RNA: Archaeal signal recognition particle RNA
RNA sequence: AUGGGGACUAGCCCGGGUGGCUCGGCGUCACCUGUAACCCGAAAUCGCCGGUAUGCGGAGGGCGAAGUCUGAGGAAGGCUCUGGCGAUCUGCUGGCGCCCUGUAUAUCCUGACUGCGAAGCCUUGUCCCAUGAGGUCGACGGACAGGCAUCGAGGCCUCGUAGGGGGCGGAGACCUGGUACCGCGGGGACCGGUUCAGGCCCGGAAGGGAGCAGACCUACCGUGGACGUUCGGCGCCCAUGGGGGUGCGGGGUGGAGAAGGGGUAUCCCGGCAAGAGCAGACACGUGCUGUCGACCGAAGACGUGUCCCCGU
Numbered sequence: 001a002u003g004g005g006g007a008c009u010a011g012c013c014c015g016g017g018u019g020g021c022u023c024g025g026c027g028u029c030a031c032c033u034g035u036a037a038c039c040c041g042a043a044a045u046c047g048c049c050g051g052u053a054u055g056c057g058g059a060g061g062g063c064g065a066a067g068u069c070u071g072a073g074g075a076a077g078g079c080u081c082u083g084g085c086g087a088u089c090u091g092c093u094g095g096c097g098c099c100c101u102g103u104a105u106a107u108c109c110u111g112a113c114u115g116c117g118a119a120g121c122c123u124u125g126u127c128c129c130a131u132g133a134g135g136u137c138g139a140c141g142g143a144c145a146g147g148c149a150u151c152g153a154g155g156c157c158u159c160g161u162a163g164g165g166g167g168c169g170g171a172g173a174c175c176u177g178g179u180a181c182c183g184c185g186g187g188g189a190c191c192g193g194u195u196c197a198g199g200c201c202c203g204g205a206a207g208g209g210a211g212c213a214g215a216c217c218u219a220c221c222g223u224g225g226a227c228g229u230u231c232g233g234c235g236c237c238c239a240u241g242g243g244g245g246u247g248c249g250g251g252g253u254g255g256a257g258a259a260g261g262g263g264u265a266u267c268c269c270g271g272c273a274a275g276a277g278c279a280g281a282c283a284c285g286u287g288c289u290g291u292c293g294a295c296c297g298a299a300g301a302c303g304u305g306u307c308c309c310c311g312u
Base pairs, nucleotide, nucleotide: 001312002311003310004309005308006307007306008305011063012062013061014060015033016032017031018030019029020028021027039058040057041056043054067302068301069300070299073296074295077292078291079290084284088281089280090279091278092277093276097272100270102268104266105265106264107263108262109261110260113257114256120253121252122251123250124249125248126247127243128242129241130240131239132238134236135234136233137232138231139229140228141227142179144177145176146175147174150173151172155168156167157166158165159164181225182224183223184222185221186220192217193216194215195214200209201208202207